[Rfam]
RNA: MIR480 microRNA precursor family
RNA sequence: UAAUUUAUCCAAGGCAUAUUCUUUUUUAAUUGUAGCAGAUCCACACUUGACUACUCAAAAUAAUUUGUUAUCUCAAUUCCAGCCGCCUCAAUUACUCAUGUUGAAUUGAAAAUGUUUAUUUUGAUAUAAA
Number, nucleotide and partner (000 for none) at each position: 001u000002a000003a000004u130005u129006u128007a127008u000009c000010c000011a000012a121013g000014g119015c000016a000017u000018a115019u114020u000021c000022u000023u111024u110025u000026u000027u108028a107029a106030u105031u104032g000033u000034a000035g000036c000037a000038g000039a000040u000041c000042c000043a000044c000045a000046c000047u000048u000049g000050a000051c000052u000053a000054c000055u000056c000057a000058a000059a000060a000061u000062a000063a000064u000065u000066u000067g000068u000069u000070a000071u000072c000073u000074c000075a000076a000077u000078u000079c000080c000081a000082g000083c000084c000085g000086c000087c000088u000089c000090a000091a000092u000093u000094a000095c000096u000097c000098a000099u000100g000101u000102u000103g000104a031105a030106u029107u028108g027109a000110a024111a023112a000113u000114g019115u018116u000117u000118a000119u014120u000121u012122u000123g000124a000125u000126a000127u007128a006129a005130a004